RNA: Lysine riboswitch aptamer
RNA sequence: CAUUCAGAUAGAGGCGCGAUUUUUAUUAGUAAUUUUUUGGAGGAUGACACCUAUGAAAAAAGAAGAAAGGAAAAAUCGCCGAAGUGACAGGGACUGUCAAAAACCUGUUGCUGGGAUUGGAUAAAAGAUAUCCAAUACUGUCAUAGCUUUAGCUAUGGAGGACUAUCGAGCAA
Numbered sequence: 001c002a003u004u005c006a007g008a009u010a011g012a013g014g015c016g017c018g019a020u021u022u023u024u025a026u027u028a029g030u031a032a033u034u035u036u037u038u039g040g041a042g043g044a045u046g047a048c049a050c051c052u053a054u055g056a057a058a059a060a061a062g063a064a065g066a067a068a069g070g071a072a073a074a075a076u077c078g079c080c081g082a083a084g085u086g087a088c089a090g091g092g093a094c095u096g097u098c099a100a101a102a103a104c105c106u107g108u109u110g111c112u113g114g115g116a117u118u119g120g121a122u123a124a125a126a127g128a129u130a131u132c133c134a135a136u137a138c139u140g141u142c143a144u145a146g147c148u149u150u151a152g153c154u155a156u157g158g159a160g161g162a163c164u165a166u167c168g169a170g171c172a173a
Stems, first nucleotide, its partner, number of pairs: 007167005016079009033063006083112009113139002116136008141158007